[Rfam]
RNA sequence: GGUUGUCUGAGGGGAAGUUGCCCCUAGUACGAGAGGAACAGGGCAGCGCAGCCUCUGGUUUAUCAGUUGUCCGACAGGGCAAGCUGAGCAGCUAAGCUGUUUAGGAUAACUCCUGAAAGCAUCUAAGGAGGAAGCCUUUCCCGAGACAAGACAACCUUCCGUAAGGAGAAGGGCGGCCAUAGAAGAUGGCGUUGAUGGAAUGGAGGUGUAAGCACCAAGCUUUCAAGCGAGGUGUUCAGCCUGCCAUCACCAAUAGCCCAACG
Numbered sequence: 001g002g003u004u005g006u007c008u009g010a011g012g013g014g015a016a017g018u019u020g021c022c023c024c025u026a027g028u029a030c031g032a033g034a035g036g037a038a039c040a041g042g043g044c045a046g047c048g049c050a051g052c053c054u055c056u057g058g059u060u061u062a063u064c065a066g067u068u069g070u071c072c073g074a075c076a077g078g079g080c081a082a083g084c085u086g087a088g089c090a091g092c093u094a095a096g097c098u099g100u101u102u103a104g105g106a107u108a109a110c111u112c113c114u115g116a117a118a119g120c121a122u123c124u125a126a127g128g129a130g131g132a133a134g135c136c137u138u139u140c141c142c143g144a145g146a147c148a149a150g151a152c153a154a155c156c157u158u159c160c161g162u163a164a165g166g167a168g169a170a171g172g173g174c175g176g177c178c179a180u181a182g183a184a185g186a187u188g189g190c191g192u193u194g195a196u197g198g199a200a201u202g203g204a205g206g207u208g209u210a211a212g213c214a215c216c217a218a219g220c221u222u223u224c225a226a227g228c229g230a231g232g233u234g235u236u237c238a239g240c241c242u243g244c245c246a247u248c249a250c251c252a253a254u255a256g257c258c259c260a261a262c263g
Stems, first nucleotide, its partner, number of pairs: 001156008011142004017047007048100005056094003063087005068081005103137003110130005171259004176190004196252003200247004204242003212235005219228001

Record summary
The record is a 263-nucleotide part of an RNA from uncultured crenarchaeote, which matches "Archaeal large subunit ribosomal RNA" in Rfam. The sequence is in the family's curated seed alignment.